[Rfam]
RNA sequence: GGUCAGUGAUGAGUGUUGGCAUGUAUUAUCUAAAGUUGAUAUUUAUCACCACUUUAGCUCUAGAAUUACUGUGUGUACUCU
Numbered sequence: 001g002g003u004c005a006g007u008g009a010u011g012a013g014u015g016u017u018g019g020c021a022u023g024u025a026u027u028a029u030c031u032a033a034a035g036u037u038g039a040u041a042u043u044u045a046u047c048a049c050c051a052c053u054u055u056a057g058c059u060c061u062a063g064a065a066u067u068a069c070u071g072u073g074u075g076u077a078c079u080c081u
Stems, first nucleotide, its partner, number of pairs: 001079003004075001